[Rfam]
RNA sequence: GGGUGUGACGGGUAACCCGGUCGGCAGGAUUCAGGGAUGGUCGGGCCGCCAUCU
Numbered sequence: 001g002g003g004u005g006u007g008a009c010g011g012g013u014a015a016c017c018c019g020g021u022c023g024g025c026a027g028g029a030u031u032c033a034g035g036g037a038u039g040g041u042c043g044g045g046c047c048g049c050c051a052u053c054u
Base pairs, nucleotide, nucleotide: 005025006024007021009019010018035054036053037052038051039050040049041048
RNA: nhaA-I RNA